The record is a 399-nucleotide RNA sequence from Faunimonas pinastri, which matches "Bacterial RNase P class A" in Rfam. NCBI's taxonomy places the organism under Bacteria, Pseudomonadota, Alphaproteobacteria, Afifellaceae, Faunimonas. The base pairs follow the family's consensus structure, which is taken from published work. The family's RNA type in Rfam is ribozyme.
[Rfam]
RNA sequence: CCAGUCGGCUGGACGGCCGCUCUUUCCGCUUCGCGGGAAGGGAGGAAAGUCCGGGCUCCAUGGAAAAACGGUGCCGGAUAACGUCCGGCGGGGGCGACCCCAGGGAAAGUGCCACAGAAAGCAAACCGCCGCGCAAUUGGCUUCGGCUCGCGCGGCAAGGGUGAAAGGGUGGGGUAAGAGCCCACCGCGGACGCAGCAAUGCGGACGGCAAGGUAAACCCCACCGGGAGCAAGACCAAAAAGGGACGGCACGGGCUCUAGCAGCCCAGCCUUUUCCAGGCCCGCCGUCCGGGUCGGUCGCGAGAAGCGUUCGGUAACGGGCGCUCCAGAUGAAUGGUCGUCGCGUCGGGAUCGCAAGAUCCCGGCCUUACAGAACCCGGCUUACAGGCCGGCUGGCAUC
Number, nucleotide and partner (000 for none) at each position: 001c395002c394003a393004g392005u391006c390007g389008g388009c387010u386011g384012g341013a340014c339015g338016g337017c336018c335019g000020c042021u041022c040023u039024u038025u037026c036027c035028g034029c000030u000031u000032c000033g000034c028035g027036g026037g025038a024039a023040g022041g021042g020043a000044g000045g000046a000047a382048a381049g380050u000051c379052c378053g377054g376055g375056c229057u228058c227059c226060a000061u000062g000063g000064a000065a000066a274067a273068a000069c225070g224071g223072u222073g221074c088075c087076g086077g085078a084079u000080a000081a000082c000083g000084u078085c077086c076087g075088g074089c103090g101091g100092g099093g098094g000095c000096g000097a000098c093099c092100c091101c090102a000103g089104g220105g219106a000107a000108a000109g218110u217111g214112c213113c212114a000115c000116a000117g000118a000119a000120a000121g000122c000123a000124a000125a000126c160127c159128g156129c155130c154131g153132c152133g151134c150135a000136a148137u000138u000139g000140g000141c000142u000143u000144c000145g000146g000147c000148u136149c000150g134151c133152g132153c131154g130155g129156c128157a000158a000159g127160g126161g000162u000163g000164a000165a000166a000167g000168g186169g185170u184171g183172g182173g181174g000175u000176a000177a000178g000179a000180g000181c173182c172183c171184a170185c169186c168187g209188c207189g206190g000191a000192c203193g202194c201195a200196g000197c000198a000199a000200u195201g194202c193203g192204g000205a000206c189207g188208g000209c187210a000211a000212g113213g112214u111215a000216a000217a110218c109219c105220c104221c073222a072223c071224c070225g069226g059227g058228a057229g056230c000231a000232a000233g298234a297235c296236c295237a000238a000239a000240a000241a000242g000243g289244g288245a287246c286247g285248g284249c000250a000251c000252g000253g000254g000255c000256u000257c000258u000259a000260g000261c000262a000263g000264c000265c000266c000267a000268g280269c279270c278271u277272u000273u067274u066275c000276c000277a271278g270279g269280c268281c000282c000283g000284c248285c247286g246287u245288c244289c243290g000291g000292g000293u000294c000295g236296g235297u234298c233299g000300c000301g000302a000303g000304a000305a324306g323307c322308g321309u320310u319311c318312g317313g000314u000315a000316a000317c312318g311319g310320g309321c308322g307323c306324u305325c000326c000327a000328g000329a000330u000331g000332a000333a000334u000335g018336g017337u016338c015339g014340u013341c012342g000343c000344g000345u000346c000347g000348g000349g000350a000351u000352c000353g000354c000355a000356a000357g000358a000359u000360c000361c000362c000363g000364g000365c000366c000367u000368u000369a000370c000371a000372g000373a000374a000375c055376c054377c053378g052379g051380c049381u048382u047383a000384c011385a000386g010387g009388c008389c007390g006391g005392c004393u003394g002395g001396c000397a000398u000399c000